The record is a 138-nucleotide RNA from Apteryx owenii, which matches "Small nucleolar RNA SNORA5" in Rfam.
Rfam classes the family as an H/ACA-box small nucleolar RNA.
A search with the family's covariance model found it, with a score of 75 bits.

RNA sequence: CGCAGCCCCGUCAAAUUCGGUCGCCGCCUCCGCCGUGGCGGCGACCGGCCAGCCGGCUGCCACAGCAACUUCCGUAGUCCAUGGGCUCCGCGUCCCUUCCCGUGGGACCCCGGGGAUAAAAUCGUGCCACGGACACGG
Numbered sequence: 001c002g003c004a005g006c007c008c009c010g011u012c013a014a015a016u017u018c019g020g021u022c023g024c025c026g027c028c029u030c031c032g033c034c035g036u037g038g039c040g041g042c043g044a045c046c047g048g049c050c051a052g053c054c055g056g057c058u059g060c061c062a063c064a065g066c067a068a069c070u071u072c073c074g075u076a077g078u079c080c081a082u083g084g085g086c087u088c089c090g091c092g093u094c095c096c097u098u099c100c101c102g103u104g105g106g107a108c109c110c111c112g113g114g115g116a117u118a119a120a121a122u123c124g125u126g127c128c129a130c131g132g133a134c135a136c137g138g
Stems, first nucleotide, its partner, number of pairs: 002060004018047011074130002077127002079124001086115005

Rfam 15.1 lists 2,226 matches to the family in 629 species. Rfam's curators write: ACA5 is a member of the H/ACA class of snoRNA that guide the sites of modification of uridines to pseudouridines. The organism belongs to Apteryx, within Eukaryota.